[Rfam]
RNA sequence: GCGAAUCAAUUUUGUAUAGAGUUGGAACGUUUGCCGCUAGGGGCGCUGUUCCAACUGCAUACAAAUUUGAGUUA
Numbered sequence: 001g002c003g004a005a006u007c008a009a010u011u012u013u014g015u016a017u018a019g020a021g022u023u024g025g026a027a028c029g030u031u032u033g034c035c036g037c038u039a040g041g042g043g044c045g046c047u048g049u050u051c052c053a054a055c056u057g058c059a060u061a062c063a064a065a066u067u068u069g070a071g072u073u074a
Base pairs, nucleotide, nucleotide: 008068009067011065012064013063014062015061016060020056021055022054023053024052025051026050027049028048029047034042035041